[Rfam]
Shown here is a 45-nucleotide sequence, a member of the family "L31-Actinobacteria ribosomal protein leader". Pairs were carried over by alignment from the consensus structure, which is taken from published work.

RNA sequence: CCGGUUCCGGUUCACGUCGCGUGAGAGCGUGACGACCCGGCGACC
Numbered sequence: 001c002c003g004g005u006u007c008c009g010g011u012u013c014a015c016g017u018c019g020c021g022u023g024a025g026a027g028c029g030u031g032a033c034g035a036c037c038c039g040g041c042g043a044c045c
Base pairs, nucleotide, nucleotide: 003045004044005043007040008039009038010037015034016033017032018031019030020029021028022027
Rfam's curators put it in the seed alignment.